[Rfam]
RNA sequence: UGGUAUGAACAGGUUACCUGUGGUGCAGUGUGGUAGUGGAAAACGCUGCAUCACGUGUGACCUGCCCACACCGU
Numbered sequence: 001u002g003g004u005a006u007g008a009a010c011a012g013g014u015u016a017c018c019u020g021u022g023g024u025g026c027a028g029u030g031u032g033g034u035a036g037u038g039g040a041a042a043a044c045g046c047u048g049c050a051u052c053a054c055g056u057g058u059g060a061c062c063u064g065c066c067c068a069c070a071c072c073g074u
Base pairs, nucleotide, nucleotide: 003071004070006068007067010064011063012062013061014060015059016058017057019055020054021053023051024050025049026048027047
RNA: mir-1421 microRNA precursor family
Organism: Ornithorhynchus anatinus